[Rfam]
RNA sequence: AAAGUAAAGAAGAGGCCAUCCGCUUCUCACCUUAUGACCAAGCUUUAGGCUACGAGUUGUCAGGUUAAAUACCAAUAAGAUAAUACAGAUAAUACUUUUGUAUUCUUUAUGGGCGGAUGGUUAUAUCCGCCCAUUUUUUGUUGU
Number, nucleotide and partner (000 for none) at each position: 001a000002a000003a000004g000005u000006a000007a000008a000009g000010a000011a027012g026013a025014g024015g023016c022017c000018a000019u000020c000021c000022g016023c015024u014025u013026c012027u011028c000029a065030c064031c063032u000033u000034a060035u059036g058037a057038c056039c000040a000041a000042g000043c000044u000045u000046u000047a000048g000049g000050c000051u000052a000053c000054g000055a000056g038057u037058u036059g035060u034061c000062a000063g031064g030065u029066u000067a000068a000069a000070u000071a000072c000073c000074a000075a000076u000077a000078a000079g000080a000081u000082a000083a000084u000085a000086c000087a000088g000089a000090u000091a000092a000093u000094a000095c000096u000097u000098u000099u000100g000101u000102a000103u000104u000105c000106u000107u000108u000109a000110u000111g000112g131113g130114c129115g128116g127117a126118u125119g124120g000121u000122u000123a000124u119125a118126u117127c116128c115129g114130c113131c112132c000133a000134u000135u000136u000137u000138u000139u000140g000141u000142u000143g000144u000